[Rfam]
RNA sequence: GGCAAACAUCCAUCACUAAGGAUCGUUCGGCACGUACCUGCCGGUGAAGGAGUAAAUCA
Dot-bracket structure: ........(((.(((...........((((((......))))))))).)))........
Rfam assigns this 59-nucleotide RNA sequence to the family "msiK RNA".
It is annotated as a cis-regulatory element.
The family's consensus secondary structure is taken from published work.